[Rfam]
RNA sequence: CCGAUAUAGCUGGUUGAAAUCGGCCCAAAUUGUAUUGCAUUUCCAUGUCAUUUGGUCCCCUUCAACCAGCUGUACUUG
Dot-bracket structure: ..(.((.(((((((((((...((.((((((...................))))))))...))))))))))).)).)..
This 78-nucleotide RNA sequence from Strigamia maritima belongs to the Rfam family "mir-133 microRNA precursor family". About the family: mir-133 was first experimentally characterised in mouse and homologues have since been discovered in several other species. The mature sequence is excised from the 3' arm of the hairpin. On this family, see Lagos-Quintana et al., Curr Biol 2002: "Identification of tissue-specific microRNAs from mouse". NCBI's taxonomy places the organism under Eukaryota, Bilateria, Protostomia, Geophilomorpha, Strigamia. Rfam links the family to the GO terms miRNA-mediated post-transcriptional gene silencing and RISC complex.